[Rfam]
RNA: Y RNA
RNA sequence: GGCUGCUCUGAAGGUAGUGAGUUAUCUCAAUUGAUUGUUCACAGUUACAGAUUGAACUUCUUGUUCUACUCUUUCCCCCUUCUCACUAUUGCACUUGACUCGUCUUUU
Numbered sequence: 001g002g003c004u005g006c007u008c009u010g011a012a013g014g015u016a017g018u019g020a021g022u023u024a025u026c027u028c029a030a031u032u033g034a035u036u037g038u039u040c041a042c043a044g045u046u047a048c049a050g051a052u053u054g055a056a057c058u059u060c061u062u063g064u065u066c067u068a069c070u071c072u073u074u075c076c077c078c079c080u081u082c083u084c085a086c087u088a089u090u091g092c093a094c095u096u097g098a099c100u101c102g103u104c105u106u107u108u
Stems, first nucleotide, its partner, number of pairs: 001104003005100001007098002010096002014092002016087006043067002